[Rfam]
RNA sequence: GUAAGCAUAUAGGGAAACCUGUAUGUAGUGACUACAUAAAAGUCCAAUUUACUACCUGAAUUGCUGGAAAACCGUAAAGCUAAGGAGACGACAACGCCUGGAUGAAACAAGCCAAAACGUGACCGUGGCGAAAGCAGAAAAAAAUCCUUAGAUGGCAUACGGUUAAAACCUAAGUGCUAACAAUAAUUGGUGAUCAGCAGCCAAGCUUCGAAAAGAAGAAGGUUCAACGACUAUUCCUCUUGAGGGAAGUACACCGUAAGCGAUUGAUGGUGGAAGUGGGUAGCCCCUAACGUGUCACGACGAGGGAGAAGAUAUAGUCUGUGCUUAAUGGAAACAUUAAG
Numbered sequence: 001g002u003a004a005g006c007a008u009a010u011a012g013g014g015a016a017a018c019c020u021g022u023a024u025g026u027a028g029u030g031a032c033u034a035c036a037u038a039a040a041a042g043u044c045c046a047a048u049u050u051a052c053u054a055c056c057u058g059a060a061u062u063g064c065u066g067g068a069a070a071a072c073c074g075u076a077a078a079g080c081u082a083a084g085g086a087g088a089c090g091a092c093a094a095c096g097c098c099u100g101g102a103u104g105a106a107a108c109a110a111g112c113c114a115a116a117a118c119g120u121g122a123c124c125g126u127g128g129c130g131a132a133a134g135c136a137g138a139a140a141a142a143a144a145u146c147c148u149u150a151g152a153u154g155g156c157a158u159a160c161g162g163u164u165a166a167a168a169c170c171u172a173a174g175u176g177c178u179a180a181c182a183a184u185a186a187u188u189g190g191u192g193a194u195c196a197g198c199a200g201c202c203a204a205g206c207u208u209c210g211a212a213a214a215g216a217a218g219a220a221g222g223u224u225c226a227a228c229g230a231c232u233a234u235u236c237c238u239c240u241u242g243a244g245g246g247a248a249g250u251a252c253a254c255c256g257u258a259a260g261c262g263a264u265u266g267a268u269g270g271u272g273g274a275a276g277u278g279g280g281u282a283g284c285c286c287c288u289a290a291c292g293u294g295u296c297a298c299g300a301c302g303a304g305g306g307a308g309a310a311g312a313u314a315u316a317g318u319c320u321g322u323g324c325u326u327a328a329u330g331g332a333a334a335c336a337u338u339a340a341g
Base pairs, nucleotide, nucleotide: 005026006025007024008023009022010021011020012019013018030035052283053282054281055280057278058277062199063198064197065196066195067194072190073189074188200223201222207216208215227320229319230318231317232316233315285306286305287304288303326339327338328337329336330335